[Rfam]
RNA sequence: UCGGACGCACCGCCGAACUGGCCCGGACGUGGGGAAGACGUCCAGGCCGGACCGGGGAACCAUGUUCCUGGGGUGAAUCGUGGCGCCGUCCCGCACGGCGUCGCGUAGGGCAGACCUUGGCCCGAACCCGUCAGCUCACCCGGUAGGCGACGAGGACACUGGAG
Number, nucleotide and partner (000 for none) at each position: 001u000002c000003g000004g000005a000006c000007g000008c000009a000010c000011c149012g148013c147014c146015g000016a000017a000018c050019u049020g048021g047022c046023c045024c000025g000026g000027a000028c000029g000030u000031g000032g000033g000034g000035a000036a000037g000038a000039c000040g000041u000042c000043c000044a000045g023046g022047c021048c020049g019050g018051a144052c143053c142054g141055g140056g139057g000058a000059a000060c000061c070062a069063u000064g000065u000066u000067c000068c000069u062070g061071g129072g128073g127074u000075g000076a000077a000078u000079c105080g104081u103082g102083g101084c100085g099086c098087c097088g096089u095090c000091c000092c000093g000094c000095a089096c088097g087098g086099c085100g084101u083102c082103g081104c080105g079106u000107a000108g123109g122110g121111c120112a000113g000114a000115c000116c000117u000118u000119g000120g111121c110122c109123c108124g000125a000126a000127c073128c072129c071130g000131u000132c000133a000134g000135c000136u000137c000138a000139c056140c055141c054142g053143g052144u051145a000146g014147g013148c012149g011150a000151c000152g000153a000154g000155g000156a000157c000158a000159c000160u000161g000162g000163a000164g000
Notes
Shown here is a 164-nucleotide RNA sequence from Aeromicrobium erythreum, a member of the family "c-di-AMP riboswitch aptamer (ydaO/yuaA leader)". NCBI's taxonomy places the organism under Bacteria, Bacillati, Actinomycetota, Nocardioidaceae, Aeromicrobium.